[Rfam]
RNA sequence: ACUAUCUUCAAAAGAAUAUGCCACAUUGAACCUGCCAGUUGUGGGUGCAGCCUGGUACCAGGCAGCCUGAUCCUGACCUAAAGUAAAUUUCCGAGAGAAGUCUCACCUGGGUUCUGAAUUUGCAGUAACAGGUGUGAGCAUUCUAGCAGCAGUUUGAUGAUCAUGUAUGAUACUGCAAACAGGA
Numbered sequence: 001a002c003u004a005u006c007u008u009c010a011a012a013a014g015a016a017u018a019u020g021c022c023a024c025a026u027u028g029a030a031c032c033u034g035c036c037a038g039u040u041g042u043g044g045g046u047g048c049a050g051c052c053u054g055g056u057a058c059c060a061g062g063c064a065g066c067c068u069g070a071u072c073c074u075g076a077c078c079u080a081a082a083g084u085a086a087a088u089u090u091c092c093g094a095g096a097g098a099a100g101u102c103u104c105a106c107c108u109g110g111g112u113u114c115u116g117a118a119u120u121u122g123c124a125g126u127a128a129c130a131g132g133u134g135u136g137a138g139c140a141u142u143c144u145a146g147c148a149g150c151a152g153u154u155u156g157a158u159g160a161u162c163a164u165g166u167a168u169g170a171u172a173c174u175g176c177a178a179a180c181a182g183g184a
Stems, first nucleotide, its partner, number of pairs: 005076002010071001014067001017064001019060002026050003030046003090111003093107001097103001119179009129169002135163003139159004145154003
RNA: Small Cajal body specific RNA 16
Organism: Otolemur garnettii